[Rfam]
RNA: FMN riboswitch aptamer (RFN element)
Organism: Granulicatella elegans
RNA sequence: UAACAUUUUCGGGGCAAGGUGUAAUUCCUUACCGGCGGUAUAGUCCGCGAGCCAAACAGGCAUGAUCUGGUGCAAUUCCAGAACCGAUAGUGAUAGUCUAGAUGAGAGAAAAUGGUU
Numbered sequence: 001u002a003a004c005a006u007u008u009u010c011g012g013g014g015c016a017a018g019g020u021g022u023a024a025u026u027c028c029u030u031a032c033c034g035g036c037g038g039u040a041u042a043g044u045c046c047g048c049g050a051g052c053c054a055a056a057c058a059g060g061c062a063u064g065a066u067c068u069g070g071u072g073c074a075a076u077u078c079c080a081g082a083a084c085c086g087a088u089a090g091u092g093a094u095a096g097u098c099u100a101g102a103u104g105a106g107a108g109a110a111a112a113u114g115g116u117u
Stems, first nucleotide, its partner, number of pairs: 004114007017029003031097002033086002035048004043084002053060001066082005088100003
Dot-bracket structure: ...(((((((......(((.......))).[[((((((....[[))))....(......).....(((((.......)))))]])).(((.....]]))).......)))))))...